Selenocysteine transfer RNA: a 93-nucleotide sequence from Calidifontibacillus erzurumensis. The family's consensus secondary structure is taken from published work. Rfam links the family to the GO term triplet codon-amino acid adaptor activity. A reference for the family is Mizutani and Goto (2000), "Eukaryotic selenocysteine tRNA has the 9/4 secondary structure", FEBS Lett.

RNA sequence: GGGGCCGGAUGGGGUACUGGUGUCCUCCGCGGUCUUCAAAACCGUACGUGACCGCCGUGCGCGGUCAGGUGAGUUCGAUUCUCACACGGUCCC
Numbered sequence: 001g002g003g004g005c006c007g008g009a010u011g012g013g014g015u016a017c018u019g020g021u022g023u024c025c026u027c028c029g030c031g032g033u034c035u036u037c038a039a040a041a042c043c044g045u046a047c048g049u050g051a052c053c054g055c056c057g058u059g060c061g062c063g064g065u066c067a068g069g070u071g072a073g074u075u076c077g078a079u080u081c082u083c084a085c086a087c088g089g090u091c092c093c
Stems, first nucleotide, its partner, number of pairs: 001093007012027003016023002029045005049067005070084004